The family of this 70-nucleotide RNA sequence from Medicago truncatula is "MIR2629 microRNA precursor family". Pairs were carried over by alignment from the consensus structure, which was predicted with RNAalifold. A search with the family's covariance model found it, with a score of 63 bits. The source organism's lineage runs through Eukaryota, Streptophytina, Pentapetalae, Fabaceae and Medicago. Gene Ontology terms of the family: miRNA-mediated post-transcriptional gene silencing and RISC complex.

RNA sequence: UGCCGAAGUUUUCCUUGGUAGUUAACUGCCGUUGGUUCUUUUCCUUGGUAGUUAACUGCCGCUGGGGCAU
Dot-bracket structure: ...........((..((((((((((((((..................))))))))))))))...))....
Numbered sequence: 001u002g003c004c005g006a007a008g009u010u011u012u013c014c015u016u017g018g019u020a021g022u023u024a025a026c027u028g029c030c031g032u033u034g035g036u037u038c039u040u041u042u043c044c045u046u047g048g049u050a051g052u053u054a055a056c057u058g059c060c061g062c063u064g065g066g067g068c069a070u
Stems, first nucleotide, its partner, number of pairs: 012066002016061014